[Rfam]
RNA sequence: GUAGGGGGAAGCUCGCUCACAGGGAAUACGCACGAGUGCAAUUUCUGUCACUCAUUUUCUUCCUUGGGAAGGUCUGAGAGAAAGGCUAUUUAAGACUCUAGAAGGGUCCGCAUCCGGUAACGGAUGGCACGCGAUCAGAAAUGGUCUUCGCUCAUAGAAUGUUGGCACAAGAUCUGUACUAUUUUAGUAGAGGGAUGCCUGUUUAUCUAUGACUGAAGUUGUGAAAGCGUGUAGCCAGCCACAUGAAGUGCAAUGAACGAGAUGGAAUUGUUCCAGAACUCAAUUCAGACUACUCUCCCCCUAC
Number, nucleotide and partner (000 for none) at each position: 001g304002u303003a302004g301005g000006g000007g298008g297009a296010a000011g000012c261013u260014c259015g258016c000017u256018c255019a000020c000021a065022g064023g063024g062025a061026a000027u000028a000029c000030g000031c000032a000033c000034g053035a052036g051037u050038g049039c047040a000041a000042u000043u000044u000045c000046u000047g039048u000049c038050a037051c036052u035053c034054a000055u000056u000057u000058u000059c000060u000061u025062c024063c023064u022065u021066g000067g000068g000069a000070a000071g000072g000073u000074c288075u287076g286077a285078g284079a000080g000081a000082a000083a000084g236085g235086c234087u233088a000089u000090u000091u000092a000093a000094g108095a107096c106097u105098c104099u000100a000101g000102a000103a000104g098105g097106g096107u095108c094109c000110g000111c126112a125113u124114c123115c122116g121117g000118u000119a000120a000121c116122g115123g114124a113125u112126g111127g232128c231129a230130c229131g228132c227133g000134a000135u000136c000137a000138g000139a000140a000141a000142u000143g000144g000145u000146c218147u217148u216149c215150g214151c000152u000153c000154a000155u000156a000157g000158a000159a000160u000161g000162u000163u000164g000165g000166c000167a000168c000169a000170a000171g000172a000173u000174c000175u000176g000177u000178a000179c000180u000181a000182u000183u000184u000185u000186a000187g000188u000189a000190g000191a000192g000193g000194g000195a000196u000197g000198c000199c000200u000201g000202u000203u000204u000205a000206u000207c000208u000209a000210u000211g000212a000213c000214u150215g149216a148217a147218g146219u000220u000221g000222u000223g000224a000225a000226a000227g132228c131229g130230u129231g128232u127233a087234g086235c085236c084237a000238g000239c000240c000241a000242c000243a000244u000245g000246a000247a000248g000249u000250g000251c000252a000253a000254u000255g018256a017257a000258c015259g014260a013261g012262a000263u275264g274265g273266a272267a000268u000269u000270g000271u000272u266273c265274c264275a263276g000277a000278a000279c000280u000281c000282a000283a000284u078285u077286c076287a075288g074289a000290c000291u000292a000293c000294u000295c000296u009297c008298c007299c000300c000301c004302u003303a002304c001
Rfam assigns this 304-nucleotide RNA from Didymodactylos carnosus to the family "Nuclear RNase P". Rfam describes the family as follows. Ribonuclease P (RNase P) is a ubiquitous endoribonuclease, found in archaea, bacteria and eukarya as well as chloroplasts and mitochondria. Its best characterised activity is the generation of mature 5'-ends of tRNAs by cleaving the 5'-leader elements of precursor-tRNAs. Cellular RNase Ps are ribonucleoproteins. It scores 159 bits against the family's covariance model. NCBI's taxonomy places the organism under Eukaryota, Opisthokonta, Protostomia, Spiralia, Didymodactylos. For this family Rfam cites "Phylogenetic-comparative analysis of the eukaryal ribonuclease P RNA" (Frank et al., RNA, 2000).